[Rfam]
RNA: T-box leader
Organism: Anaerobium acetethylicum
RNA sequence: GCAAAUGCAGUGACGAGGAGGAGUACAUACUCACCGGGAUUUCAGAGAGAAGAUGGUUGGUGCGAAUCUUUAUUUUCGAAGUAUGGAAGUAGCCUUUGAGCAGUGGACCGAACGGGAUUGUCCCAAGUAGGCUUCAACGGAAUUUUCCACCGUUACAGGGAAAGCGGUAUCGAUAGCAAUAUCCGUGCUGAUUGAGUUUCAUGAAUCAGUAAGAUAUGGUGUCUGUACUGAACGAGAGCAGAGAGAAGUCUCUGAAUUUAGGUGGUAACACGGAUGGAUCAUUCGCCCUAAGC
Numbered sequence: 001g002c003a004a005a006u007g008c009a010g011u012g013a014c015g016a017g018g019a020g021g022a023g024u025a026c027a028u029a030c031u032c033a034c035c036g037g038g039a040u041u042u043c044a045g046a047g048a049g050a051a052g053a054u055g056g057u058u059g060g061u062g063c064g065a066a067u068c069u070u071u072a073u074u075u076u077c078g079a080a081g082u083a084u085g086g087a088a089g090u091a092g093c094c095u096u097u098g099a100g101c102a103g104u105g106g107a108c109c110g111a112a113c114g115g116g117a118u119u120g121u122c123c124c125a126a127g128u129a130g131g132c133u134u135c136a137a138c139g140g141a142a143u144u145u146u147c148c149a150c151c152g153u154u155a156c157a158g159g160g161a162a163a164g165c166g167g168u169a170u171c172g173a174u175a176g177c178a179a180u181a182u183c184c185g186u187g188c189u190g191a192u193u194g195a196g197u198u199u200c201a202u203g204a205a206u207c208a209g210u211a212a213g214a215u216a217u218g219g220u221g222u223c224u225g226u227a228c229u230g231a232a233c234g235a236g237a238g239c240a241g242a243g244a245g246a247a248g249u250c251u252c253u254g255a256a257u258u259u260a261g262g263u264g265g266u267a268a269c270a271c272g273g274a275u276g277g278a279u280c281a282u283u284c285g286c287c288c289u290a291a292g293c
Stems, first nucleotide, its partner, number of pairs: 007101002015096004026085006038074003049071006104136004108131002138152003239254006259290004271285004